[Rfam]
RNA sequence: GUUGGUUUUCAGGGCAGGGUGAAAUUCCCGACCGGCGGUAUAGUCCGCGACCCAGGUUUUCCUGGUUGAUUGGGUUUAAUUCCCAAACCGAUAGUAAAGUCUAGAUGAAAGAAAACAGAU
Numbered sequence: 001g002u003u004g005g006u007u008u009u010c011a012g013g014g015c016a017g018g019g020u021g022a023a024a025u026u027c028c029c030g031a032c033c034g035g036c037g038g039u040a041u042a043g044u045c046c047g048c049g050a051c052c053c054a055g056g057u058u059u060u061c062c063u064g065g066u067u068g069a070u071u072g073g074g075u076u077u078a079a080u081u082c083c084c085a086a087a088c089c090g091a092u093a094g095u096a097a098a099g100u101c102u103a104g105a106u107g108a109a110a111g112a113a114a115a116c117a118g119a120u
Base pairs, nucleotide, nucleotide: 003118005116006115007114008113009112010111017029018028019027031100032099033090034089035048036047037046038045043088044087052065053064070086071085072084073083074082092103093102094101